A member of the RNA family "Selenocysteine insertion sequence 3" from Rhizocola hellebori, 59 nucleotides long. For this family Rfam cites "Solution structure of mRNA hairpins promoting selenocysteine incorporation in Escherichia coli and their base-specific interaction with special elongation factor SELB" (Huttenhofer et al., RNA, 1996). It scores 65 bits against the family's covariance model. Lineage of the source: Bacteria > Bacillati > Actinomycetota > Micromonosporaceae > Rhizocola. Rfam classes the family as a cis-regulatory element.

RNA sequence: GUUUGACACGGUCCAACGGUGGUCAGUUUGGCCGCCACGUUUGGCCGGGGAGCCAUGAC
Numbered sequence: 001g002u003u004u005g006a007c008a009c010g011g012u013c014c015a016a017c018g019g020u021g022g023u024c025a026g027u028u029u030g031g032c033c034g035c036c037a038c039g040u041u042u043g044g045c046c047g048g049g050g051a052g053c054c055a056u057g058a059c
Stems, first nucleotide, its partner, number of pairs: 007049001009047005015042002018035001021033005